This 101-nucleotide sequence from Musa balbisiana belongs to the Rfam family "Plastid-psbA-1 3UTR RNA". It scores 59 bits against the family's covariance model.
[Rfam]
RNA sequence: UUGAAAUUGAAAAAUAUGUUUUGUGAAAAAAAAAAUAAAGUAUCAACAAAGUAGCAAUACACCAUGUCUUGAUAAAGCAAGACAUGGGGUAUUGCUACUUU
Numbered sequence: 001u002u003g004a005a006a007u008u009g010a011a012a013a014a015u016a017u018g019u020u021u022u023g024u025g026a027a028a029a030a031a032a033a034a035a036u037a038a039a040g041u042a043u044c045a046a047c048a049a050a051g052u053a054g055c056a057a058u059a060c061a062c063c064a065u066g067u068c069u070u071g072a073u074a075a076a077g078c079a080a081g082a083c084a085u086g087g088g089g090u091a092u093u094g095c096u097a098c099u100u101u
Base pairs, nucleotide, nucleotide: 048101049100050099051098052097053096054095055094056093057092058091059090060089062087063086064085066083067082068081069080070079
Overview: The family is grouped with related families in Rfam's "Plastid-psbA 3UTR RNA clan". Plastid psbA-1 is a non-coding RNA (ncRNA) present in plastids. The organism belongs to Musa, within Eukaryota. A reference for the family is Richter et al. (2023), "Retrograde signaling in plants: A critical review focusing on the GUN pathway and beyond", Plant Commun.